Shown here is an 81-nucleotide sequence from Dryobates pubescens, a member of the family "Small nucleolar RNA MBII-202". The base pairs follow the family's consensus structure, which was predicted with PFOLD. The literature on the family includes a 2001 paper in EMBO J by Huttenhofer et al., "RNomics: an experimental approach that identifies 201 candidates for novel, small, non-messenger RNAs in mouse". NCBI's taxonomy places the organism under Eukaryota, Deuterostomia, Neoaves, Picidae, Dryobates. Rfam 15.1 lists 745 matches to the family in 452 species.
[Rfam]
RNA sequence: GAUGAGACAUCUCCGGAAUCGCUGCACCACCUUGAUGAUUCCCUUGAACCCAUGUUUGCCUGAUGACUGCGGCUGUUGUGU
Numbered sequence: 001g002a003u004g005a006g007a008c009a010u011c012u013c014c015g016g017a018a019u020c021g022c023u024g025c026a027c028c029a030c031c032u033u034g035a036u037g038a039u040u041c042c043c044u045u046g047a048a049c050c051c052a053u054g055u056u057u058g059c060c061u062g063a064u065g066a067c068u069g070c071g072g073c074u075g076u077u078g079u080g081u
Base pairs, nucleotide, nucleotide: 002081003080004079006077